[Rfam]
RNA: narK RNA
RNA sequence: GGCAUGCAAAAUGCAGUACAGGCUACGGCAGGCCAACGGCGGUCUGCGCACACGACAAAGGCGUCGC
Number, nucleotide and partner (000 for none) at each position: 001g000002g000003c000004a000005u000006g000007c000008a000009a000010a000011a000012u000013g000014c000015a000016g000017u000018a000019c000020a000021g000022g000023c000024u000025a000026c000027g000028g047029c046030a045031g044032g043033c042034c041035a000036a000037c000038g000039g000040c000041g034042g033043u032044c031045u030046g029047c028048g000049c000050a000051c000052a000053c000054g000055a000056c000057a000058a000059a000060g000061g000062c000063g000064u000065c000066g000067c000